[Rfam]
RNA: Vault RNA
Organism: Prolemur simus
RNA sequence: GGGCUGGCUUUAGCUCAGCAGUUCCUUCAACAGUGUUUUAACAACCUCUUUGCAGAGGCAGAGCAGUUCAAGACCCGCGGGCGCUCACCAGCCCUUUU
Numbered sequence: 001g002g003g004c005u006g007g008c009u010u011u012a013g014c015u016c017a018g019c020a021g022u023u024c025c026u027u028c029a030a031c032a033g034u035g036u037u038u039u040a041a042c043a044a045c046c047u048c049u050u051u052g053c054a055g056a057g058g059c060a061g062a063g064c065a066g067u068u069c070a071a072g073a074c075c076c077g078c079g080g081g082c083g084c085u086c087a088c089c090a091g092c093c094c095u096u097u098u
Base pairs, nucleotide, nucleotide: 002093003092004091005090006089007088013082014081015080016079018078019077021075026072027071030068